[Rfam]
RNA sequence: GGUAUUGACUCGGGGUGCAGUUGGGUGACAUACCAACGGCUGAGACAUACCCGUCGAACCUGACACGGUUAAUACCGUUGUAGGGAAGUCGUCUAUUAGGUUA
Numbered sequence: 001g002g003u004a005u006u007g008a009c010u011c012g013g014g015g016u017g018c019a020g021u022u023g024g025g026u027g028a029c030a031u032a033c034c035a036a037c038g039g040c041u042g043a044g045a046c047a048u049a050c051c052c053g054u055c056g057a058a059c060c061u062g063a064c065a066c067g068g069u070u071a072a073u074a075c076c077g078u079u080g081u082a083g084g085g086a087a088g089u090c091g092u093c094u095a096u097u098a099g100g101u102u103a
Stems, first nucleotide, its partner, number of pairs: 006091005011053004016047001017040002020037005059084004065078004
This 103-nucleotide sequence from Faucicola osloensis belongs to the Rfam family "TPP riboswitch aptamer (THI element)".
The match comes from Rfam's covariance-model search (68 bits).
Rfam's curators write: Vitamin B(1) in its active form thiamin pyrophosphate (TPP) is an essential coenzyme that is synthesised by coupling of pyrimidine and thiazole moieties in bacteria.